GP20-a RNA: a 97-nucleotide sequence.
[Rfam]
RNA sequence: UAGACCCGGCAUUGCAGGGAGAUAAAUGCGAUGGCAACACUACCGCUGAGUGGCAGCGGAAAUACAAAUUAAAUCUAUGUUGUUAGGAGGACACAAA
Numbered sequence: 001u002a003g004a005c006c007c008g009g010c011a012u013u014g015c016a017g018g019g020a021g022a023u024a025a026a027u028g029c030g031a032u033g034g035c036a037a038c039a040c041u042a043c044c045g046c047u048g049a050g051u052g053g054c055a056g057c058g059g060a061a062a063u064a065c066a067a068a069u070u071a072a073a074u075c076u077a078u079g080u081u082g083u084u085a086g087g088a089g090g091a092c093a094c095a096a097a
Base pairs, nucleotide, nucleotide: 005019006018007017010033011032012031013030014029035082036081037080038079039078043059044058045057046056047055
Annotation
It is one of the family's seed sequences. Rfam classes the family as a cis-regulatory element. The base pairs follow the family's consensus structure, which is taken from published work.